A member of the RNA family "Small nucleolar RNA SNORD58" from Polypterus senegalus, 67 nucleotides long. Gene Ontology terms of the family: RNA processing and nucleolus. The literature on the family includes a 1996 paper in Cell by Kiss-Laszlo et al., "Site-specific ribose methylation of preribosomal RNA: a novel function for small nucleolar RNAs". The family has 33 seed sequences and 2,484 matches in Rfam 15.1. By type it is a C/D-box small nucleolar RNA. Taxonomically the source falls in Polypterus (Eukaryota, Opisthokonta, Metazoa, Vertebrata). The base pairs follow the family's consensus structure, which was predicted with PFOLD.

RNA sequence: UUGCCAUGAUGACCUUCUUAGGACACCUUUGGAUUUUACUAUGAAAACAUCUUUUAGUCUGAGCAAC
Numbered sequence: 001u002u003g004c005c006a007u008g009a010u011g012a013c014c015u016u017c018u019u020a021g022g023a024c025a026c027c028u029u030u031g032g033a034u035u036u037u038a039c040u041a042u043g044a045a046a047a048c049a050u051c052u053u054u055u056a057g058u059c060u061g062a063g064c065a066a067c
Stems, first nucleotide, its partner, number of pairs: 001066004